[Rfam]
RNA: mir-395 microRNA precursor family
Organism: Solanum commersonii
RNA sequence: GUAUUCUCUAGAGUUCCCUUGACCACUUCAUGAGGGAUUAAUAUCUUCGUUUCUGAUGCCCAGCUGAAGUGUUGGGGGAACUCCCGGGUUCAC
Numbered sequence: 001g002u003a004u005u006c007u008c009u010a011g012a013g014u015u016c017c018c019u020u021g022a023c024c025a026c027u028u029c030a031u032g033a034g035g036g037a038u039u040a041a042u043a044u045c046u047u048c049g050u051u052u053c054u055g056a057u058g059c060c061c062a063g064c065u066g067a068a069g070u071g072u073u074g075g076g077g078g079a080a081c082u083c084c085c086g087g088g089u090u091c092a093c
Stems, first nucleotide, its partner, number of pairs: 006088003011083010022073001024071007034061002